[Rfam]
RNA sequence: GUCCGUUCAUCCCUUACGGGACGCAUGACUCCUAAGCAUGGAACGGGGCUUAGGU
Numbered sequence: 001g002u003c004c005g006u007u008c009a010u011c012c013c014u015u016a017c018g019g020g021a022c023g024c025a026u027g028a029c030u031c032c033u034a035a036g037c038a039u040g041g042a043a044c045g046g047g048g049c050u051u052a053g054g055u
Base pairs, nucleotide, nucleotide: 004045005044006043007042008041010021011020012019013018031054032053033052034051035050036049037048
Annotation: This 55-nucleotide RNA belongs to the Rfam family "Glutamine-II riboswitch aptamer". The sequence is in the family's curated seed alignment.